A member of the RNA family "Purine riboswitch aptamer" from Cytobacillus dafuensis, 102 nucleotides long. For this family Rfam cites "Riboswitches Control Fundamental Biochemical Pathways in Bacillus subtilis and Other Bacteria" (Mandal et al., Cell, 2003).
RNA sequence: UUAAAUAUUGUUAUAUUACGUCGUAUAAUGUUGGGGAUAUGGCCCAAAAGUUUCUACCGAGCUACCGGAAAUAGCUUGACUACGAGGUAAGUGUAAUAGAAU
Number, nucleotide and partner (000 for none) at each position: 001u000002u000003a000004a000005a000006u000007a000008u000009u000010g000011u000012u000013a000014u000015a000016u000017u000018a088019c087020g000021u085022c084023g083024u082025a081026u000027a000028a000029u049030g000031u047032u046033g045034g044035g043036g000037a000038u000039a000040u000041g000042g000043c035044c034045c033046a032047a031048a000049a029050g000051u000052u000053u000054c000055u000056a000057c000058c078059g077060a076061g075062c074063u073064a072065c000066c000067g000068g000069a000070a000071a000072u064073a063074g062075c061076u060077u059078g058079a000080c000081u025082a024083c023084g022085a021086g000087g019088u018089a000090a000091g000092u000093g000094u000095a000096a000097u000098a000099g000100a000101a000102u000